[Rfam]
RNA sequence: GGACAUAAACGCGCUCGUAAUAAGCGGAUCGGACCCGGGGGCGGUACCCGGCGGCUCCACCAACAUCUGGUCAUUUGCCAGCGAUGGGGCCGAAACAGGAUCGACGAACGUCUAAAGGGGUUUGCUUUGUCCCGGUGAGUUACCACCGUUAUCGGUACACAUAAGCUAGUUGCAAAUGACAACCAUGCUCCGGUCGCGGUCGCAGCGUAA
Numbered sequence: 001g002g003a004c005a006u007a008a009a010c011g012c013g014c015u016c017g018u019a020a021u022a023a024g025c026g027g028a029u030c031g032g033a034c035c036c037g038g039g040g041g042c043g044g045u046a047c048c049c050g051g052c053g054g055c056u057c058c059a060c061c062a063a064c065a066u067c068u069g070g071u072c073a074u075u076u077g078c079c080a081g082c083g084a085u086g087g088g089g090c091c092g093a094a095a096c097a098g099g100a101u102c103g104a105c106g107a108a109c110g111u112c113u114a115a116a117g118g119g120g121u122u123u124g125c126u127u128u129g130u131c132c133c134g135g136u137g138a139g140u141u142a143c144c145a146c147c148g149u150u151a152u153c154g155g156u157a158c159a160c161a162u163a164a165g166c167u168a169g170u171u172g173c174a175a176a177u178g179a180c181a182a183c184c185a186u187g188c189u190c191c192g193g194u195c196g197c198g199g200u201c202g203c204a205g206c207g208u209a210a
Stems, first nucleotide, its partner, number of pairs: 001132005013121004025110002029107003035051005052092007133148004